Shown here is a 66-nucleotide RNA from Albula glossodonta, a member of the family "Selenocysteine insertion sequence 1". On this family, see Walczak et al., RNA 1996: "A novel RNA structural motif in the selenocysteine insertion element of eukaryotic selenoprotein mRNAs". Rfam describes the family as follows. The incorporation of selenocysteine into a protein sequence is directed by an in-frame UGA codon (usually a stop codon) within the coding region of the mRNA. Selenoprotein mRNAs contain a conserved secondary structure in the 3' UTR that is required for the distinction of UGA stop from UGA selenocysteine. NCBI's taxonomy places the organism under Eukaryota, Craniata, Vertebrata, Elopomorpha, Albula. The base pairs follow the family's consensus structure, which is taken from published work.
RNA sequence: GAUGUAUUAAUGAUGGCCUGUGUCUAAACUCUGCAGAGAGACCAGACUUGAUGCUUUACACACAGC
Number, nucleotide and partner (000 for none) at each position: 001g066002a000003u064004g063005u062006a000007u000008u000009a000010a000011u000012g000013a000014u000015g048016g047017c000018c045019u044020g043021u000022g042023u041024c040025u000026a000027a000028a000029c038030u037031c036032u000033g000034c000035a000036g031037a030038g029039a000040g024041a023042c022043c020044a019045g018046a000047c016048u015049u000050g000051a000052u000053g000054c000055u000056u000057u000058a000059c000060a000061c000062a005063c004064a003065g000066c001